[Rfam]
RNA: Manganese Mn2+ riboswitch aptamer (yybP-ykoY)
Nucleotides: 092
Stems, first nucleotide, its partner, number of pairs: 026037003039079010056069005
Number, partner (000 for none) and nucleotide at each position: 001000c002000g003000c004000a005000c006000c007000u008000u009000c010000u011000u012000c013000g014000g015000g016000g017000a018000g019000u020000a021000g022000c023000c024000g025000u026037u027036c028035g029000c030000u031000c032000c033000a034000g035028c036027g037026a038000a039079g040078u041077c042076c043075g044074c045073g046072u047071c048070a049000a050000c051000a052000c053000a054000c055000u056069c057068g058067g059066c060065u061000u062000u063000c064000g065060g066059g067058c068057c069056g070048u071047g072046g073045c074044g075043c076042g077041g078040a079039c080000g081000g082000c083000g084000g085000g086000c087000c088000u089000g090000a091000c092000c